[Rfam]
The record is a 58-nucleotide sequence from Tetracentron sinense, which matches "Plastid-psbA-3 3UTR RNA" in Rfam.
The family's consensus secondary structure was predicted with LocARNA.
Plastid psbA-3 is a non-coding RNA (ncRNA) present in plastids. It was identified in inverted repeat sequences in the 3 prime untranslate region (3UTR) of photosystem II quinone-binding protein (psbA).
A search with the family's covariance model found it, with a score of 57 bits.
The family is grouped with related families in Rfam's "Plastid-psbA 3UTR RNA clan".
It is annotated as a cis-regulatory element.

RNA sequence: AAAUGAGCAAUAACAAAAUUCUUGUUCUAUCAAGAGGCUUGGUAUUGCUCCUUCAUUU
Numbered sequence: 001a002a003a004u005g006a007g008c009a010a011u012a013a014c015a016a017a018a019u020u021c022u023u024g025u026u027c028u029a030u031c032a033a034g035a036g037g038c039u040u041g042g043u044a045u046u047g048c049u050c051c052u053u054c055a056u057u058u
Stems, first nucleotide, its partner, number of pairs: 002053002005050008014041001019036006